Rfam assigns this 64-nucleotide RNA from Ammonifex degensii to the family "Fluoride riboswitch aptamer (crcB RNA motif)". The source organism's lineage runs through Bacteria, Clostridia, Thermoanaerobacterales, Ammonifex and Ammonifex degensii.
RNA sequence: ACCACAUAAGGCGAUGGAGCCCGCCUUAACCGCCCGGAGAAGGGCUGAUGGCUCCUGGUCUUUC
Numbered sequence: 001a002c003c004a005c006a007u008a009a010g011g012c013g014a015u016g017g018a019g020c021c022c023g024c025c026u027u028a029a030c031c032g033c034c035c036g037g038a039g040a041a042g043g044g045c046u047g048a049u050g051g052c053u054c055c056u057g058g059u060c061u062u063u064c
Stems, first nucleotide, its partner, number of pairs: 010025004016055006032045004